[Rfam]
RNA sequence: CGCCCCGGCGCGGGUCCCGUGGGGGGAAUCCGUACCGGGGAAAGAAGAGCGCCCCGACCGUCGAC
Dot-bracket structure: ((.(((((..((((((((.....))).)))))..)))))....(........)........))..

This 65-nucleotide RNA belongs to the Rfam family "Streptomyces RNA 2736". By type it is a small RNA. Rfam describes the family as follows. Identified by deep sequencing of transcriptome at the end of exponential growth phase. The literature on the family includes a 2011 paper in RNA Biol by Vockenhuber et al., "Deep sequencing-based identification of small non-coding RNAs in Streptomyces coelicolor".